[Rfam]
RNA sequence: CUUGGGGAAGCCGAAAACCAAAGAAAAGAGUAGGCA
Numbered sequence: 001c002u003u004g005g006g007g008a009a010g011c012c013g014a015a016a017a018c019c020a021a022a023g024a025a026a027a028g029a030g031u032a033g034g035c036a
Stems, first nucleotide, its partner, number of pairs: 002021004010035003
A member of the RNA family "DUF805b RNA" from Chitinophaga parva, 36 nucleotides long. The family's RNA type in Rfam is cis-regulatory element. Lineage of the source: Bacteria > Pseudomonadati > Chitinophagales > Chitinophagaceae > Chitinophaga. A search with the family's covariance model found it, with a score of 44 bits. The family's consensus secondary structure is taken from published work.